Rfam assigns this 52-nucleotide RNA from Microcoleus sp. FACHB-831 to the family "Nitrogen stress-induced RNA 1". The organism belongs to Microcoleus, within Bacteria. A reference for the family is Ionescu et al. (2010), "Heterocyst-specific transcription of NsiR1, a non-coding RNA encoded in a tandem array of direct repeats in cyanobacteria", J Mol Biol.
Nucleotides: 052
Stems, first nucleotide, its partner, number of pairs: 002013003022044010
Number, partner (000 for none) and nucleotide at each position: 001000u002013g003012g004011u005000a006000g007000a008000u009000g010000c011004a012003c013002c014000c015000u016000g017000g018000u019000u020000u021000a022044a023043c024042u025041c026040u027039a028038g029037a030036g031035u032000u033000u034000g035031g036030c037029u038028c039027u040026a041025g042024a043023g044022u045000u046000u047000u048000u049000u050000u051000u052000u